A member of the RNA family "SAM (S-adenosyl methionine) riboswitch aptamer" from Geodermatophilus ruber, 112 nucleotides long. SAM-IV is a mRNA element that regulates gene expression via direct sensing of S-adenosylmethionine (SAM or AdoMet). A search with the family's covariance model found it, with a score of 90 bits. The source organism's lineage runs through Bacteria, Actinomycetes, Geodermatophilales, Geodermatophilaceae and Geodermatophilus. Pairs were carried over by alignment from the consensus structure, which is taken from published work.
RNA sequence: GGUCCUGAGUGCCAGUACCAAGCCCCGGCUCGCUGGCCGGCAACCCUCCGCUGCGACGGGGUGCCCCGGGUGACGACCUGGCGGACGCCAUCCGCGUCCGCAAGUCCGCAGC
Numbered sequence: 001g002g003u004c005c006u007g008a009g010u011g012c013c014a015g016u017a018c019c020a021a022g023c024c025c026c027g028g029c030u031c032g033c034u035g036g037c038c039g040g041c042a043a044c045c046c047u048c049c050g051c052u053g054c055g056a057c058g059g060g061g062u063g064c065c066c067c068g069g070g071u072g073a074c075g076a077c078c079u080g081g082c083g084g085a086c087g088c089c090a091u092c093c094g095c096g097u098c099c100g101c102a103a104g105u106c107c108g109c110a111g112c
Stems, first nucleotide, its partner, number of pairs: 001078004009038001011037006021030002039065003044061003049055001081101008